The family of this 100-nucleotide RNA sequence from Shewanella sp. SNU WT4 is "Alpha operon ribosome binding site". The bacterial alpha operon ribosome binding site is surrounded by this complex pseudoknotted structure. Translation of the mRNA produces 4 ribosomal protein products, one of which (S4) acts as a translational repressor by binding to the nested pseudoknot region. The mechanism of repression is thought to involve a conformational switch in the pseudoknot region and ribosome entrapment. The family's consensus secondary structure is taken from published work. A reference for the family is Schlax et al. (2001), "Translational repression of the Escherichia coli alpha operon mRNA: importance of an mRNA conformational switch and a ternary entrapment complex", J Biol Chem. By type it is a cis-regulatory element. Its family is annotated with ribosome binding in the Gene Ontology.
RNA sequence: AACUGUCAUCUGUUGAGUAUCCUUUCGGGCUUUUCACAGAUGGCCUUUAACUUAUAAGGAGUGCAUAGUGGCCCGUAUAGCUGGCAUUAACAUUCCUGAU
Numbered sequence: 001a002a003c004u005g006u007c008a009u010c011u012g013u014u015g016a017g018u019a020u021c022c023u024u025u026c027g028g029g030c031u032u033u034u035c036a037c038a039g040a041u042g043g044c045c046u047u048u049a050a051c052u053u054a055u056a057a058g059g060a061g062u063g064c065a066u067a068g069u070g071g072c073c074c075g076u077a078u079a080g081c082u083g084g085c086a087u088u089a090a091c092a093u094u095c096c097u098g099a100u
Base pairs, nucleotide, nucleotide: 005044006043007042008041009040010039011038012037013036021084022083026075027074028073029072034099035098